RNA: Small nucleolar RNA snoR100
Organism: Rhododendron simsii
RNA sequence: UUAUUUUAAGCAUGGUAAUGUGCACAGAAAUUGAUUUGGGUCUCUAGGCCUGCCCUCUCUGAUGCCUUUUGCUUUGAUUUGGGGGCAAGGUUCCGUAGCUAAGUC
Numbered sequence: 001u002u003a004u005u006u007u008a009a010g011c012a013u014g015g016u017a018a019u020g021u022g023c024a025c026a027g028a029a030a031u032u033g034a035u036u037u038g039g040g041u042c043u044c045u046a047g048g049c050c051u052g053c054c055c056u057c058u059c060u061g062a063u064g065c066c067u068u069u070u071g072c073u074u075u076g077a078u079u080u081g082g083g084g085g086c087a088a089g090g091u092u093c094c095g096u097a098g099c100u101a102a103g104u105c
Stems, first nucleotide, its partner, number of pairs: 010023004040086003048078001050076001052072002